The record is a 68-nucleotide RNA sequence from Saccharata proteae, which matches "bZIP non canonical Hac1/Xbp1 intron" in Rfam. Rfam's curators write: bZIP intron RNA is a non-canonical intron that was first reported in HAC1 gene in yeast and XBP1 gene in Metazoa. The source organism's lineage runs through Eukaryota, Ascomycota, leotiomyceta, Saccharataceae and Saccharata proteae. A reference for the family is Hooks and Griffiths-Jones (2011), "Conserved RNA structures in the non-canonical Hac1/Xbp1 intron", RNA Biol.
RNA sequence: GAACAGUCCGACCCGACACAACAUUCUGCAGCAAUGUUGUGCGACCUGCAGUGUCGGUCGGACCGUUC
Numbered sequence: 001g002a003a004c005a006g007u008c009c010g011a012c013c014c015g016a017c018a019c020a021a022c023a024u025u026c027u028g029c030a031g032c033a034a035u036g037u038u039g040u041g042c043g044a045c046c047u048g049c050a051g052u053g054u055c056g057g058u059c060g061g062a063c064c065g066u067u068c
Stems, first nucleotide, its partner, number of pairs: 001068004006063002009060005020038006043055003